RNA: Protozoan signal recognition particle RNA
Organism: Plasmodium falciparum
RNA sequence: CUGUUACAUUCUUGGGACUGCAUUUCGAUGCAAAAGGAAUGGGAUGCUAUAAUAUUUCUGAGAAUUUUCAAUAUCUUAAAAAUUCCCGCCUAUCACAAGACGUCAGUUACUGAACAUAUUCUUCUGGAGAGAGAAUAUGUUGAAGUAAUGAUGAAUCAUGAACCGCCUCAGGCUGGAAACAGAGCAGGGUUAGUGAUCGCUGACGUACGGUGUGAAGAUUACGGUUGA
Numbered sequence: 001c002u003g004u005u006a007c008a009u010u011c012u013u014g015g016g017a018c019u020g021c022a023u024u025u026c027g028a029u030g031c032a033a034a035a036g037g038a039a040u041g042g043g044a045u046g047c048u049a050u051a052a053u054a055u056u057u058c059u060g061a062g063a064a065u066u067u068u069c070a071a072u073a074u075c076u077u078a079a080a081a082a083u084u085c086c087c088g089c090c091u092a093u094c095a096c097a098a099g100a101c102g103u104c105a106g107u108u109a110c111u112g113a114a115c116a117u118a119u120u121c122u123u124c125u126g127g128a129g130a131g132a133g134a135a136u137a138u139g140u141u142g143a144a145g146u147a148a149u150g151a152u153g154a155a156u157c158a159u160g161a162a163c164c165g166c167c168u169c170a171g172g173c174u175g176g177a178a179a180c181a182g183a184g185c186a187g188g189g190u191u192a193g194u195g196a197u198c199g200c201u202g203a204c205g206u207a208c209g210g211u212g213u214g215a216a217g218a219u220u221a222c223g224g225u226u227g228a
Stems, first nucleotide, its partner, number of pairs: 007041007084228002086224003090217002093215005100206008109146003113141010124131002149153001155197005165190004173182003